[Rfam]
RNA: MIR394 microRNA precursor family
Organism: Glycine soja
RNA sequence: UUCACAGAGCCCGUUUGGCCUACUGGCCACCUCCAACUGUCACCAUUUAAUAUUAGUGGAGGUGGACAGAAUGCCAAAAUGGCUAUGGAAU
Numbered sequence: 001u002u003c004a005c006a007g008a009g010c011c012c013g014u015u016u017g018g019c020c021u022a023c024u025g026g027c028c029a030c031c032u033c034c035a036a037c038u039g040u041c042a043c044c045a046u047u048u049a050a051u052a053u054u055a056g057u058g059g060a061g062g063u064g065g066a067c068a069g070a071a072u073g074c075c076a077a078a079a080u081g082g083c084u085a086u087g088g089a090a091u
Base pairs, nucleotide, nucleotide: 011081015077016076017075018074019073024068025067027065028064029063030062031061032060033059034058